The family of this 92-nucleotide RNA from Cohnella terricola is "c-di-GMP-I riboswitch aptamer". The match comes from Rfam's covariance-model search (58 bits).
[Rfam]
RNA sequence: UAGGGUUUUUGGCAAAAUUGUCGAAAGGCAGUGACGCAAAGCCAUGGGUCGUCGAUUUCCGAGGAGGAGAUACCGAUUGCCAGGUUGCAAGU
Numbered sequence: 001u002a003g004g005g006u007u008u009u010u011g012g013c014a015a016a017a018u019u020g021u022c023g024a025a026a027g028g029c030a031g032u033g034a035c036g037c038a039a040a041g042c043c044a045u046g047g048g049u050c051g052u053c054g055a056u057u058u059c060c061g062a063g064g065a066g067g068a069g070a071u072a073c074c075g076a077u078u079g080c081c082a083g084g085u086u087g088c089a090a091g092u
Stems, first nucleotide, its partner, number of pairs: 012037002017032006040086004045082003048077003055071006